[Rfam]
Small nucleolar RNA SNORD17: a 243-nucleotide RNA from Junco hyemalis. Rfam describes the family as follows. The snoRNA HBI-43 belongs to the C/D family of snoRNAs, guiding 2'O-ribose methylation at position U3797 of the 28S rRNA. Pseudouridylation in position U3797 is predicted to be guided by the H/ACA snoRNA ACA48. A reference for the family is Huttenhofer et al. (2001), "RNomics: an experimental approach that identifies 201 candidates for novel, small, non-messenger RNAs in mouse", EMBO J. The family's RNA type in Rfam is C/D-box small nucleolar RNA. The source organism's lineage runs through Eukaryota, Dinosauria, Coelurosauria, Australaves and Junco.
RNA sequence: GUGAGGUGAUGACACAGUUUAUCCAUUCUCUGAGUGCAGUGGAGCUGCCCUCCUGCAGCACCCAGCUCCUGUUCUAGGCUCUGGGUGCUGUGCAGCCUCCAGACACCCUGCAGUGUCCCAGUGUCCUGCUGGGGCUGCUGGAUGUGUGGCUGGCUGCCUGCAGGAGGGGAGCAGGGCUGGCAGGGUUGGAGCCCCUCCGGGGGGGCUCCAGCCUCACUGGGACGAGGGAUGGUGUCUGAUCAC
Dot-bracket structure: .........(((....((.(..((.(((.((..((...((.(..(((((((((((((((((((((..(((.....)))..))))))))...((((((.......(((..((((..((((((((...))))))))))))..)..))......)))))).))))))).))..))))...).)).((((((((.((((......)))).)))))).))))..))..)))))...).))....))).